[Rfam]
RNA sequence: UUGAGGGUCAAUACGUGUGUGAUUUUACUUUGUUAGUUACACAUCACUCUCUCUCAUAGAAUAACACAACUUUUUGAUGACCAUAAAUUUGUUGAGUUCUAAAUUAUGGACAGAUACGGAGUUGACAUUU
Number, nucleotide and partner (000 for none) at each position: 001u000002u056003g055004a054005g053006g052007g051008u000009c000010a000011a000012u000013a000014c000015g044016u043017g042018u041019g000020u000021g000022a037023u036024u035025u000026u000027a000028c000029u000030u000031u000032g000033u000034u000035a024036g023037u022038u000039a000040c000041a018042c017043a016044u015045c000046a000047c000048u000049c000050u000051c007052u006053c005054u004055c003056a002057u000058a000059g000060a000061a000062u000063a000064a000065c000066a000067c124068a123069a122070c121071u120072u119073u118074u000075u000076g000077a000078u000079g000080a000081c109082c108083a107084u000085a000086a000087a104088u103089u102090u000091g000092u000093u000094g000095a000096g000097u000098u000099c000100u000101a000102a089103a088104u087105u000106a000107u083108g082109g081110a000111c000112a000113g000114a000115u000116a000117c000118g073119g072120a071121g070122u069123u068124g067125a000126c000127a000128u000129u000130u000
Small Cajal body specific RNA 8: a 130-nucleotide RNA sequence from Agrilus planipennis. scaRNAs are a specific class of small nuclear RNAs which localise to the Cajal bodies and guide the modification of RNA polymerase II transcribed spliceosomal RNAs U1, U2, U4, U5 and U12. U92 belong to the H/ACA box class of guide RNAs as it has the predicted hairpin-hinge-hairpin-tail structure, conserved H/ACA-box motifs and is found associated with GAR1. Its family is annotated with nucleolus, RNA processing and Cajal body in the Gene Ontology. The family has 22 seed sequences and 955 matches in Rfam 15.1.